[Rfam]
RNA sequence: AGGCUGCACUAAACAUUCAUUGCUGUCGGUGGGUUUCUGGUUGAAACGACUCAUUGACGGGUGAAUGCAGACUGCGGUACA
Numbered sequence: 001a002g003g004c005u006g007c008a009c010u011a012a013a014c015a016u017u018c019a020u021u022g023c024u025g026u027c028g029g030u031g032g033g034u035u036u037c038u039g040g041u042u043g044a045a046a047c048g049a050c051u052c053a054u055u056g057a058c059g060g061g062u063g064a065a066u067g068c069a070g071a072c073u074g075c076g077g078u079a080c081a
Stems, first nucleotide, its partner, number of pairs: 002080001004077005014067008025058007033050003
A member of the RNA family "mir-181 microRNA precursor family" from Muraenolepis orangiensis, 81 nucleotides long. Gene Ontology terms of the family: RISC complex and miRNA-mediated post-transcriptional gene silencing.